RNA sequence: AGCAAUAGCGGAAGUUCAAGGGUGGUCGGCUUGCCCCUAUUUCCUUUUGAAAGGGGGUGAGCAUAAUGACAGUAUAUGAGUCCCUUUCUCUUAUGCUUUCUUUCGGGAUGCUAGUGAUAGCGGUACUGUCGUUUAAUCAUAAGAAUAAAAAAUAGACCUCCCUUGAACCGCCAAUUCUAGGAUGAGGUCUAUUUUUCCAAGUAGGCCGACUCCUUUGAGUCUGCUAUUGCAAGGACCGGAAGUGUUGCCGCACUUUCG
Numbered sequence: 001a002g003c004a005a006u007a008g009c010g011g012a013a014g015u016u017c018a019a020g021g022g023u024g025g026u027c028g029g030c031u032u033g034c035c036c037c038u039a040u041u042u043c044c045u046u047u048u049g050a051a052a053g054g055g056g057g058u059g060a061g062c063a064u065a066a067u068g069a070c071a072g073u074a075u076a077u078g079a080g081u082c083c084c085u086u087u088c089u090c091u092u093a094u095g096c097u098u099u100c101u102u103u104c105g106g107g108a109u110g111c112u113a114g115u116g117a118u119a120g121c122g123g124u125a126c127u128g129u130c131g132u133u134u135a136a137u138c139a140u141a142a143g144a145a146u147a148a149a150a151a152a153u154a155g156a157c158c159u160c161c162c163u164u165g166a167a168c169c170g171c172c173a174a175u176u177c178u179a180g181g182a183u184g185a186g187g188u189c190u191a192u193u194u195u196u197c198c199a200a201g202u203a204g205g206c207c208g209a210c211u212c213c214u215u216u217g218a219g220u221c222u223g224c225u226a227u228u229g230c231a232a233g234g235a236c237c238g239g240a241a242g243u244g245u246u247g248c249c250g251c252a253c254u255u256u257c258g
Stems, first nucleotide, its partner, number of pairs: 002230004007225003011221001014206001015167008028157001030155002036059001039058001041056005068130007082095001106121001209220004237258009
This 258-nucleotide sequence from [Anoxybacillus] calidus belongs to the Rfam family "BsrG". Rfam links the family to the GO terms autolysis and toxin activity. It is annotated as a small RNA. The organism belongs to Paranoxybacillus, within Bacteria. A search with the family's covariance model found it, with a score of 90 bits. Pairs were carried over by alignment from the consensus structure, which was predicted with WAR.